Rfam assigns this 378-nucleotide RNA sequence from Dendryphion nanum to the family "Nuclear RNase P".
Ribonuclease P (RNase P) is a ubiquitous endoribonuclease, found in archaea, bacteria and eukarya as well as chloroplasts and mitochondria.
The base pairs follow the family's consensus structure, which is taken from published work.

RNA sequence: GCCUUGUCAAUGCUGCGUUUCUUUCCACACACAAGGACGCUGGAUGUCUAAUUCAGUUGUCGCAUGGAAAUGAGAAAUUCGGAGUAAUCUUCACUUUUUCUUUUGCCAUUUCGCCUUGUGCGUUUUGGCAUUGCUGCCCGUAAGGGCCUGGCGUGACUCACGUCUGCAUUCGACAUCAGAAAACUCAGAGCCCAUGAAGACGACAGUGCUUUCCCUCGGGAUGGUGCUUGAGUUGAUUGGAGUCUCUAUGGGAGUCGGUGCGAAGAUCGUGUGCUCUCACGAGUAACAUCAUAGUGCAAUACGCAGCGUACUUGACCUCGACUAGCUUCACAGCGAAAGGGCAACGGUAUCAUUCGAUUCCGAUUAUUCUGACAAGGC
Numbered sequence: 001g002c003c004u005u006g007u008c009a010a011u012g013c014u015g016c017g018u019u020u021c022u023u024u025c026c027a028c029a030c031a032c033a034a035g036g037a038c039g040c041u042g043g044a045u046g047u048c049u050a051a052u053u054c055a056g057u058u059g060u061c062g063c064a065u066g067g068a069a070a071u072g073a074g075a076a077a078u079u080c081g082g083a084g085u086a087a088u089c090u091u092c093a094c095u096u097u098u099u100c101u102u103u104u105g106c107c108a109u110u111u112c113g114c115c116u117u118g119u120g121c122g123u124u125u126u127g128g129c130a131u132u133g134c135u136g137c138c139c140g141u142a143a144g145g146g147c148c149u150g151g152c153g154u155g156a157c158u159c160a161c162g163u164c165u166g167c168a169u170u171c172g173a174c175a176u177c178a179g180a181a182a183a184c185u186c187a188g189a190g191c192c193c194a195u196g197a198a199g200a201c202g203a204c205a206g207u208g209c210u211u212u213c214c215c216u217c218g219g220g221a222u223g224g225u226g227c228u229u230g231a232g233u234u235g236a237u238u239g240g241a242g243u244c245u246c247u248a249u250g251g252g253a254g255u256c257g258g259u260g261c262g263a264a265g266a267u268c269g270u271g272u273g274c275u276c277u278c279a280c281g282a283g284u285a286a287c288a289u290c291a292u293a294g295u296g297c298a299a300u301a302c303g304c305a306g307c308g309u310a311c312u313u314g315a316c317c318u319c320g321a322c323u324a325g326c327u328u329c330a331c332a333g334c335g336a337a338a339g340g341g342c343a344a345c346g347g348u349a350u351c352a353u354u355c356g357a358u359u360c361c362g363a364u365u366a367u368u369c370u371g372a373c374a375a376g377g378c
Stems, first nucleotide, its partner, number of pairs: 001378004007372003012307007022069003035049005080362005089265004136147004150164005166261003171257004187247003308350004312344003
The family is grouped with related families in Rfam's "RNaseP clan". A search with the family's covariance model found it, with a score of 38 bits. By type it is a ribozyme. The source organism's lineage runs through Eukaryota, Fungi, leotiomyceta, Pleosporomycetidae and Dendryphion.